[Rfam]
The family of this 96-nucleotide RNA sequence from Zea mays is "Small nucleolar RNA Z103". Taxonomically the source falls in Zea (Eukaryota, Embryophyta, Liliopsida, Andropogoneae).
RNA sequence: GAGGAUAUGAUGACCCUUUCCUCAGAUGAUUGACAAUGAACAUAUUGAGCACUAUAAUUUCUCAUAUGAGAAAACCAUACCAGAAUUGUGAUCCUU
Numbered sequence: 001g002a003g004g005a006u007a008u009g010a011u012g013a014c015c016c017u018u019u020c021c022u023c024a025g026a027u028g029a030u031u032g033a034c035a036a037u038g039a040a041c042a043u044a045u046u047g048a049g050c051a052c053u054a055u056a057a058u059u060u061c062u063c064a065u066a067u068g069a070g071a072a073a074a075c076c077a078u079a080c081c082a083g084a085a086u087u088g089u090g091a092u093c094c095u096u
Stems, first nucleotide, its partner, number of pairs: 001096005
The match comes from Rfam's covariance-model search (78 bits). Gene Ontology terms of the family: nucleolus and RNA processing. Pairs were carried over by alignment from the consensus structure, which was predicted with PFOLD. The family has 12 seed sequences and 2,844 matches in Rfam 15.1. Rfam classes the family as a C/D-box small nucleolar RNA.